A member of the RNA family "Small nucleolar RNA SNORA79" from Chelydra serpentina, 141 nucleotides long. Pairs were carried over by alignment from the consensus structure, which was predicted with RNAalifold. On this family, see Schattner et al., RNA 2006: "A computational screen for mammalian pseudouridylation guide H/ACA RNAs".
[Rfam]
RNA sequence: UGUUGCCUGUUCUUUCUGUUGCCCGAAACUCAUUUUCAGAUUCUAGGUCAUCACAGAUUAAUGCCAACUUACUCUGCUCAGAGGAUGUUGGGAUAGUGGGCCUAUCCUCAUGUUCCUUGAAAUUUGCAGGGUCAUACCAUU
Numbered sequence: 001u002g003u004u005g006c007c008u009g010u011u012c013u014u015u016c017u018g019u020u021g022c023c024c025g026a027a028a029c030u031c032a033u034u035u036u037c038a039g040a041u042u043c044u045a046g047g048u049c050a051u052c053a054c055a056g057a058u059u060a061a062u063g064c065c066a067a068c069u070u071a072c073u074c075u076g077c078u079c080a081g082a083g084g085a086u087g088u089u090g091g092g093a094u095a096g097u098g099g100g101c102c103u104a105u106c107c108u109c110a111u112g113u114u115c116c117u118u119g120a121a122a123u124u125u126g127c128a129g130g131g132u133c134a135u136a137c138c139a140u141u
Stems, first nucleotide, its partner, number of pairs: 001053002004050002007047002014040001016039003021034001067132004078120004083115005091107005
Rfam 15.1 lists 944 matches to the family in 375 species. Rfam links the family to the GO terms nucleolus and RNA processing. ACA65 (SNORA79) is a member of the H/ACA class of snoRNAs that guide the sites of modification of uridines to pseudouridines. This snoRNA was identified by computational screening and its expression in mouse experimentally verified by Northern blot and primer extension analysis. Lineage of the source: Eukaryota > Eumetazoa > Bilateria > Gnathostomata > Chelydra. It is annotated as an H/ACA-box small nucleolar RNA.